[Rfam]
RNA: Streptomyces sRNA scr5239
RNA sequence: CUUCCGCCCUCCCCGCACAGGAGGACGGAUCGAGGUAAGCCGCGCGCUCUGCCCUGACCGCGCAGGCACCUCCCACCGGCCGCCGGGAACCGCACACCCGGCCGGCCGUAAGUACUCCGGGCUACGGUGCCGGACGGGUUGAGGGUCCCGACCCGGCAC
Numbered sequence: 001c002u003u004c005c006g007c008c009c010u011c012c013c014c015g016c017a018c019a020g021g022a023g024g025a026c027g028g029a030u031c032g033a034g035g036u037a038a039g040c041c042g043c044g045c046g047c048u049c050u051g052c053c054c055u056g057a058c059c060g061c062g063c064a065g066g067c068a069c070c071u072c073c074c075a076c077c078g079g080c081c082g083c084c085g086g087g088a089a090c091c092g093c094a095c096a097c098c099c100g101g102c103c104g105g106c107c108g109u110a111a112g113u114a115c116u117c118c119g120g121g122c123u124a125c126g127g128u129g130c131c132g133g134a135c136g137g138g139u140u141g142a143g144g145g146u147c148c149c150g151a152c153c154c155g156g157c158a159c
Base pairs, nucleotide, nucleotide: 003029004028005027006026008024009023010022011021012020032072033071034070035069036068040065042063044061045060047056077108078107079106080105081104082103086099087098113129114128115127116126119123132153133152135150136149137148138147